Overview
Shown here is a 113-nucleotide sequence from Shinella sp. WSJ-2, a member of the family "Alphaproteobacterial ar15". The base pairs follow the family's consensus structure. Its Rfam clan is "suhB sRNA clan". The family's RNA type in Rfam is small RNA. The literature on the family includes a 2012 paper in Mol Microbiol by Caswell et al., "Identification of two small regulatory RNAs linked to virulence in Brucella abortus 2308".
RNA sequence: AGCCAAUGCACAUGCGGUCUUUCUCCUCCCAGUGCCGCGCGUUGGCUGUUCCCCUCUGGAGGUUCUAAACCUUCAACCUUGCAGGGCCCAAGCUUCGCUUGUGGCCCUCUUUU
Dot-bracket structure: (((((.(((.....((((...............)))).))).))))).........(((((((.....))))))).......((((((((((.....)))).)))))).....